[Rfam]
RNA sequence: GAUGUGGAUGGCGAUGGGGUUCGCCAUGUAACCGCCCUUGGGGCUGAUGACUCCUGCUUGUGU
Numbered sequence: 001g002a003u004g005u006g007g008a009u010g011g012c013g014a015u016g017g018g019g020u021u022c023g024c025c026a027u028g029u030a031a032c033c034g035c036c037c038u039u040g041g042g043g044c045u046g047a048u049g050a051c052u053c054c055u056g057c058u059u060g061u062g063u
Stems, first nucleotide, its partner, number of pairs: 010025004016054006034044003
The family of this 63-nucleotide RNA from Methylocystis parvus is "Fluoride riboswitch aptamer (crcB RNA motif)". The family's consensus secondary structure is taken from published work.